[Rfam]
RNA sequence: GAGAGUUUGGCCGAGUGGUUAAGGCGUCAGAUUUAGGCUUAGCUUUCAUAAUAAGUCAGAUUCUCUGAUAUCUUCGGAUGCGCGGGUUCGAAUCCCGUAGCUCUCA
Numbered sequence: 001g002a003g004a005g006u007u008u009g010g011c012c013g014a015g016u017g018g019u020u021a022a023g024g025c026g027u028c029a030g031a032u033u034u035a036g037g038c039u040u041a042g043c044u045u046u047c048a049u050a051a052u053a054a055g056u057c058a059g060a061u062u063c064u065c066u067g068a069u070a071u072c073u074u075c076g077g078a079u080g081c082g083c084g085g086g087u088u089c090g091a092a093u094c095c096c097g098u099a100g101c102u103c104u105c106a
Stems, first nucleotide, its partner, number of pairs: 001105007010025003027068005082098005
Source information:
Shown here is a 106-nucleotide RNA from Lachancea dasiensis, a member of the family "tRNA". It is annotated as a transfer RNA. It scores 52 bits against the family's covariance model. NCBI's taxonomy places the organism under Eukaryota, Fungi, Dikarya, Saccharomycetales, Lachancea. Rfam links the family to the GO term triplet codon-amino acid adaptor activity.